[Rfam]
RNA sequence: GGUCCCUUUAAACGAAGUACAGAGAGACUUCAAAGGGUAAUGCGGUGGGAGACGUACAUCUUCCUCUACCUCGUUAUACCCUUUGAGUCUAUCUCAAAGGGUAUUUUUUUA
Numbered sequence: 001g002g003u004c005c006c007u008u009u010a011a012a013c014g015a016a017g018u019a020c021a022g023a024g025a026g027a028c029u030u031c032a033a034a035g036g037g038u039a040a041u042g043c044g045g046u047g048g049g050a051g052a053c054g055u056a057c058a059u060c061u062u063c064c065u066c067u068a069c070c071u072c073g074u075u076a077u078a079c080c081c082u083u084u085g086a087g088u089c090u091a092u093c094u095c096a097a098a099g100g101g102u103a104u105u106u107u108u109u110u111a
Stems, first nucleotide, its partner, number of pairs: 004037006014031005040071001042069001044067002047064006076104012
Dot-bracket structure: ...((((((....(((((........)))))))))))..(.(.((.((((((......)))))).)).).)....((((((((((((.....)))))))))))).......